[Rfam]
RNA: mir-1324 microRNA precursor family
RNA sequence: CCUGAACAGAUGCAUGCAUACUUGUCCUGCCCUCACUGGGGACCCCCUUCCUCCUGGGUACUAGACAGAAUUCUAUGCACUUUCCUGGAGG
Numbered sequence: 001c002c003u004g005a006a007c008a009g010a011u012g013c014a015u016g017c018a019u020a021c022u023u024g025u026c027c028u029g030c031c032c033u034c035a036c037u038g039g040g041g042a043c044c045c046c047c048u049u050c051c052u053c054c055u056g057g058g059u060a061c062u063a064g065a066c067a068g069a070a071u072u073c074u075a076u077g078c079a080c081u082u083u084c085c086u087g088g089a090g091g
Stems, first nucleotide, its partner, number of pairs: 001091003008082002011079005016073001018071001021064002024061002029059004038052005